RNA: Small nucleolar RNA SNORA77
Organism: Echeneis naucrates
RNA sequence: GCAGACACACUCUGUUCUUUGCUGCUCCCUCCAGCCUUGGACUUUUUCUGUCUGCAACAGUAAUAUGCAGAAUGUAAUUCUUGACUGGCUUUGUCGAAGGCUGGUGUCGCUAUGUUCUGCUACACUAUU
Numbered sequence: 001g002c003a004g005a006c007a008c009a010c011u012c013u014g015u016u017c018u019u020u021g022c023u024g025c026u027c028c029c030u031c032c033a034g035c036c037u038u039g040g041a042c043u044u045u046u047u048c049u050g051u052c053u054g055c056a057a058c059a060g061u062a063a064u065a066u067g068c069a070g071a072a073u074g075u076a077a078u079u080c081u082u083g084a085c086u087g088g089c090u091u092u093g094u095c096g097a098a099g100g101c102u103g104g105u106g107u108c109g110c111u112a113u114g115u116u117c118u119g120c121u122a123c124a125c126u127a128u129u
Stems, first nucleotide, its partner, number of pairs: 001055006014042004022034003067120005072113002074110002077107002082103002085100002